[Rfam]
Nucleotides: 202
Stems, first nucleotide, its partner, number of pairs: 016036003020032004037046003060075002063072003096181004103177004110168003114164004121157003127153004135145002
Number, partner (000 for none) and nucleotide at each position: 001000g002000g003000a004000a005000g006000a007000a008000a009000a010000c011000c012000c013000c014000u015000u016036u017035u018034u019000a020032a021031g022030c023029c024000u025000g026000u027000u028000u029023g030022g031021c032020u033000g034018g035017g036016a037046a038045u039044u040000c041000a042000a043000a044039g045038g046037u047000u048000u049000a050000a051000g052000g053000a054000c055000c056000a057000a058000a059000a060075c061074u062000g063072g064071u065070a066000u067000g068000a069000u070065u071064g072063c073000a074061a075060g076000g077000u078000u079000c080000g081000a082000a083000a084000c085000u086000u087000a088000u089000u090000a091000a092000a093000u094000u095000a096181c097180c098179c099178u100000a101000g102000c103177g104176c105175u106174u107000a108000a109000a110168g111167a112166c113000a114164c115163u116162c117161a118000c119000c120000u121157c122156c123155c124000g125000c126000a127153u128152a129151a130150a131000u132000a133000c134000a135145c136144c137000c138000c139000g140000g141000g142000u143000u144136g145135g146000u147000c148000u149000u150130u151129u152128u153127g154000g155123g156122g157121g158000u159000u160000u161117u162116g163115a164114g165000c166112g167111u168110c169000g170000g171000a172000u173000g174106g175105a176104g177103c178099a179098g180097g181096g182000a183000c184000u185000g186000g187000a188000g189000a190000u191000g192000g193000u194000u195000u196000g197000u198000c199000a200000c201000c202000c